[Rfam]
Nucleotides: 067
Stems, first nucleotide, its partner, number of pairs: 005063004009058004014053002017051012
Number, partner (000 for none) and nucleotide at each position: 001000u002000g003000u004000a005063u006062u007061c008060u009058a010057c011056a012055g013000u014053g015052c016000a017051u018050g019049u020048g021047u022046c023045u024044c025043c026042a027041g028040u029000g030000u031000g032000a033000c034000u035000a036000a037000g038000g039000g040028a041027c042026u043025g044024g045023a046022g047021a048020u049019a050018c051017a052015g053014c054000c055012c056011u057010g058009u059000u060008g061007g062006a063005a064000u065000a066000a067000c